This 92-nucleotide sequence belongs to the Rfam family "PhotoRC-II RNA".
The sequence is in the family's curated seed alignment.
The family's consensus secondary structure is taken from published work.

RNA sequence: UUGCACAACUGCUCUCAAACCAAGACCUAUAGGCAGUAUAAUACUUCGUCUUUCUAUCCAGUAGUGAGGGAUUACUGGAAAUAAGUUUCGCA
Dot-bracket structure: ........(((((.(......[[[[[....))))))...........]]]]]....(((((((.........))))))).............
Numbered sequence: 001u002u003g004c005a006c007a008a009c010u011g012c013u014c015u016c017a018a019a020c021c022a023a024g025a026c027c028u029a030u031a032g033g034c035a036g037u038a039u040a041a042u043a044c045u046u047c048g049u050c051u052u053u054c055u056a057u058c059c060a061g062u063a064g065u066g067a068g069g070g071a072u073u074a075c076u077g078g079a080a081a082u083a084a085g086u087u088u089c090g091c092a
Stems, first nucleotide, its partner, number of pairs: 009036005015031001022052005057079007